This 236-nucleotide RNA sequence from Enterovirga rhinocerotis belongs to the Rfam family "permuted transfer-messenger RNA".
From the family's description: Bacterial tmRNA, also known as 10Sa RNA or SsrA, is named for its dual tRNA and mRNA-like properties. Its role is to liberate the mRNA from a stalled ribosome. To accomplish this part of the tmRNA is used as a reading frame that ends in a translation stop signal. The broken mRNA is replaced in the ribosome by the tmRNA and translation of the tmRNA leads to addition of a proteolysis tag to the incomplete protein enabling recognition by a protease. Recently a number of permuted tmRNA genes have been found encoded in two parts. tmRNAs have been identified in eubacteria and some chloroplasts but are absent from archaeal and eukaryote nuclear genomes.
Taxonomically the source falls in Enterovirga (Bacteria, Pseudomonadati, Pseudomonadota, Alphaproteobacteria).
The base pairs follow the family's consensus structure, which is taken from published work.
For this family Rfam cites "BRUCE: a program for the detection of transfer-messenger RNA genes in nucleotide sequences" (Laslett et al., Nucleic Acids Res, 2002).
Gene Ontology term of the family: RNA catabolic process.

RNA sequence: GAUCGUAGAUGUCGGGUGGAAUAAGCGUUUAGGACGCGGGUUCAAUUCCCGCCGUCUCCACCAUGAGCCCGUUCGACGAGAGACCCUCGCGCGGCGGGCUGAUGAUGGGGACGACUUGGGUUCGACUAGGCGUGAUAAAGGCUCAGCGGCGAUUGGGCGAGCUACGGCCCUGACAGUGCAAACACACAAAUGCCAACGACAACGUUGACAUGGGUGAGGUUCGCCUCGCGGCGUAA
Numbered sequence: 001g002a003u004c005g006u007a008g009a010u011g012u013c014g015g016g017u018g019g020a021a022u023a024a025g026c027g028u029u030u031a032g033g034a035c036g037c038g039g040g041u042u043c044a045a046u047u048c049c050c051g052c053c054g055u056c057u058c059c060a061c062c063a064u065g066a067g068c069c070c071g072u073u074c075g076a077c078g079a080g081a082g083a084c085c086c087u088c089g090c091g092c093g094g095c096g097g098g099c100u101g102a103u104g105a106u107g108g109g110g111a112c113g114a115c116u117u118g119g120g121u122u123c124g125a126c127u128a129g130g131c132g133u134g135a136u137a138a139a140g141g142c143u144c145a146g147c148g149g150c151g152a153u154u155g156g157g158c159g160a161g162c163u164a165c166g167g168c169c170c171u172g173a174c175a176g177u178g179c180a181a182a183c184a185c186a187c188a189a190a191u192g193c194c195a196a197c198g199a200c201a202a203c204g205u206u207g208a209c210a211u212g213g214g215u216g217a218g219g220u221u222c223g224c225c226u227c228g229c230g231g232c233g234u235a236a
Base pairs, nucleotide, nucleotide: 001154002153003152004151005150014144015143016142017141026132027131028130030128031127032126036052037051038050039049040048053113054112055111056110057109058108059107155170156169157168158167